[Rfam]
RNA sequence: AAAAAGUAUAGAGGUUGCGACCAACAACAGUAAUUAGUAGAGCUACUGCUUUAGCUGAGAAACUAACGAAAGGGGCGGUCGCCGAAGCACUAAGCCUUGCAGGGCUCAGUAAGCUGGGACGUAGUUUAAUAGACUGCGGACUGUCGCAGCGGAUACGUCGGCUGCGGGGCGCUAUCGACAAA
Number, nucleotide and partner (000 for none) at each position: 001a000002a000003a000004a000005a000006g000007u000008a175009u174010a173011g172012a000013g000014g000015u000016u000017g082018c081019g080020a079021c078022c077023a000024a000025c074026a000027a000028c000029a000030g000031u000032a000033a000034u066035u065036a064037g063038u062039a000040g000041a000042g000043c000044u000045a000046c000047u000048g000049c000050u000051u000052u000053a000054g000055c000056u000057g000058a000059g000060a000061a000062a038063c037064u036065a035066a034067c000068g000069a000070a000071a000072g000073g000074g025075g000076c000077g022078g021079u020080c019081g018082c017083c000084g000085a000086a115087g114088c113089a110090c109091u108092a000093a106094g105095c104096c000097u000098u000099g000100c000101a000102g000103g000104g095105c094106u093107c000108a091109g090110u089111a000112a000113g088114c087115u086116g142117g141118g000119a000120c138121g137122u136123a135124g134125u133126u132127u000128a000129a000130u000131a000132g126133a125134c124135u123136g122137c121138g120139g000140a000141c117142u116143g000144u167145c166146g165147c164148a163149g162150c161151g000152g000153a000154u000155a000156c000157g000158u000159c000160g000161g150162c149163u148164g147165c146166g145167g144168g000169g000170c000171g000172c011173u010174a009175u008176c000177g000178a000179c000180a000181a000182a000
This 182-nucleotide sequence from Lentilactobacillus curieae belongs to the Rfam family "Lysine riboswitch aptamer". From the family's description: Riboswitches are metabolite binding domains within certain messenger RNAs that serve as precision sensors for their corresponding targets.